Rfam assigns this 102-nucleotide RNA from Gossypium hirsutum to the family "MIR7504 microRNA precursor family".
NCBI's taxonomy places the organism under Eukaryota, Viridiplantae, eudicotyledons, Malvoideae, Gossypium.

[Rfam]
RNA sequence: AAUAAGAGAAUGACAAAUCAGAUUUUUCCUUCUGAUUUUUAAUAUUUUUAGUUGAACUUGAAUAUUUUCAGGAGGAAAAAUCUGAUUUGUCAUUCUCUUAUU
Number, nucleotide and partner (000 for none) at each position: 001a102002a101003u100004a099005a098006g097007a096008g095009a094010a093011u092012g091013a090014c089015a088016a087017a086018u085019c084020a083021g082022a081023u000024u079025u078026u077027u076028c000029c074030u073031u072032c071033u070034g069035a068036u000037u000038u000039u000040u000041a066042a065043u000044a000045u062046u061047u060048u000049u000050a000051g000052u000053u000054g000055a000056a000057c000058u000059u000060g047061a046062a045063u000064a000065u042066u041067u000068u035069c034070a033071g032072g031073a030074g029075g000076a027077a026078a025079a024080a000081u022082c021083u020084g019085a018086u017087u016088u015089g014090u013091c012092a011093u010094u009095c008096u007097c006098u005099u004100a003101u002102u001